[Rfam]
RNA sequence: CGCACUGUCAUUGGGGAGUAACCAUCUCUAUCCCCGGAUCCGUCUCCGAACAGAGGCCGGCUCCAGAGAGUCAGCGUCAACACACUUGGUGGUUUCGUACCCCAUGGCGCUGACGGCCCGCACGCACGGAUCAUCCGCGCGCAGCAGCCCGGCGAGACCUUUGGCCGCGAUGCGUUCACCCUGCCGGGCGAGCC
Numbered sequence: 001c002g003c004a005c006u007g008u009c010a011u012u013g014g015g016g017a018g019u020a021a022c023c024a025u026c027u028c029u030a031u032c033c034c035c036g037g038a039u040c041c042g043u044c045u046c047c048g049a050a051c052a053g054a055g056g057c058c059g060g061c062u063c064c065a066g067a068g069a070g071u072c073a074g075c076g077u078c079a080a081c082a083c084a085c086u087u088g089g090u091g092g093u094u095u096c097g098u099a100c101c102c103c104a105u106g107g108c109g110c111u112g113a114c115g116g117c118c119c120g121c122a123c124g125c126a127c128g129g130a131u132c133a134u135c136c137g138c139g140c141g142c143a144g145c146a147g148c149c150c151g152g153c154g155a156g157a158c159c160u161u162u163g164g165c166c167g168c169g170a171u172g173c174g175u176u177c178a179c180c181c182u183g184c185c186g187g188g189c190g191a192g193c194c
Base pairs, nucleotide, nucleotide: 026068027067028066070114071113072112073111074110075109076108077107078106079105087104088103089102091100115194116193117192119190120189121188

Rfam assigns this 194-nucleotide RNA sequence from Bordetella pertussis to the family "Manganese Mn2+ riboswitch aptamer (yybP-ykoY)". Rfam's curators write: This RNA was originally discovered in E. coli during a large scale screen and was named SraF. The family was later found to exist upstream of related families of protein genes in many bacteria, including the the yybP and ykoK genes in B. subtilis. The base pairs follow the family's consensus structure. The source organism's lineage runs through Bacteria, Betaproteobacteria, Burkholderiales, Bordetella and Bordetella pertussis.